Notes:
A member of the RNA family "c-di-GMP-I riboswitch aptamer" from Olavius sp. associated proteobacterium Delta 1, 91 nucleotides long.

RNA sequence: GCUUGAAAAAGGCAAUCCGCACGAAAGUGCGGUCCGCAAAGCCACCGGCCUAAGUUCCGUGACCACGGAAUAUGGCAGCGGGGUCGCCGGG
Numbered sequence: 001g002c003u004u005g006a007a008a009a010a011g012g013c014a015a016u017c018c019g020c021a022c023g024a025a026a027g028u029g030c031g032g033u034c035c036g037c038a039a040a041g042c043c044a045c046c047g048g049c050c051u052a053a054g055u056u057c058c059g060u061g062a063c064c065a066c067g068g069a070a071u072a073u074g075g076c077a078g079c080g081g082g083g084u085c086g087c088c089g090g091g
Stems, first nucleotide, its partner, number of pairs: 012037002017032006041084003045081003048076003055070006